[Rfam]
RNA sequence: GUUCUUUGAGGUGGAAGAUUUCGUACGGUCCACACGCCGCUGGUAUGACAAGGGAAACCUGAGAGAUGCAGGAGAAGCGUACGCUUGCCGAAGAAC
Numbered sequence: 001g002u003u004c005u006u007u008g009a010g011g012u013g014g015a016a017g018a019u020u021u022c023g024u025a026c027g028g029u030c031c032a033c034a035c036g037c038c039g040c041u042g043g044u045a046u047g048a049c050a051a052g053g054g055a056a057a058c059c060u061g062a063g064a065g066a067u068g069c070a071g072g073a074g075a076a077g078c079g080u081a082c083g084c085u086u087g088c089c090g091a092a093g094a095a096c
Stems, first nucleotide, its partner, number of pairs: 001096008011033005023082005035063001037054002068088005
Shown here is a 96-nucleotide RNA from bacterium 1xD8-6, a member of the family "skipping-rope RNA".